[Rfam]
Annotation: A member of the RNA family "TPP riboswitch aptamer (THI element)" from Thermosinus carboxydivorans, 109 nucleotides long. From the family's description: Vitamin B(1) in its active form thiamin pyrophosphate (TPP) is an essential coenzyme that is synthesised by coupling of pyrimidine and thiazole moieties in bacteria. The match comes from Rfam's covariance-model search (73 bits). NCBI's taxonomy places the organism under Bacteria, Bacillati, Bacillota, Negativicutes, Thermosinus carboxydivorans.
RNA sequence: AUAGUGUAACGAGGGAGCCCAUGUUAUGGGCUGAGAGUGGGCUAGUAAGCACCUGACCUCUUGACCUGAUCGGGGUAAUGCCCGCGUAGGGAGGUAUUUAAGCGCACCU
Number, nucleotide and partner (000 for none) at each position: 001a000002u000003a000004g000005u000006g097007u096008a095009a000010c093011g060012a059013g058014g057015g000016a054017g031018c030019c029020c028021a027022u000023g000024u000025u000026a000027u021028g020029g019030g018031c017032u000033g000034a000035g000036a000037g000038u000039g052040g000041g050042c049043u000044a000045g000046u000047a000048a000049g042050c041051a000052c039053c000054u016055g000056a000057c014058c013059u012060c011061u000062u000063g000064a000065c090066c089067u088068g087069a000070u000071c084072g083073g082074g081075g000076u000077a000078a000079u000080g000081c074082c073083c072084g071085c000086g000087u068088a067089g066090g065091g000092a000093g010094g000095u008096a007097u006098u000099u000100a000101a000102g000103c000104g000105c000106a000107c000108c000109u000